[Rfam]
RNA sequence: AACCUCCCUAUCCCUUUCCCAUCAGAUCUGAAUAUGGAUCUUAUGGUCAAAAAGGAGGGAAAGUAAAAUGGAAGCUGGCCCCUUACCUCUUAGUUGGAGAAAAUCCUCCACUAAGGUGGGCUGGCUUGAGACAGUG
Dot-bracket structure: ..(((((...........((((..((((........))))..)))).......)))))................(((((((........(((((...............)))))...)))))))............
Small nucleolar RNA SNORA61: a 136-nucleotide RNA from Pogona vitticeps. Rfam describes the family as follows. ACA61 is a member of the H/ACA class of snoRNA that guide the sites of modification of uridines to pseudouridines.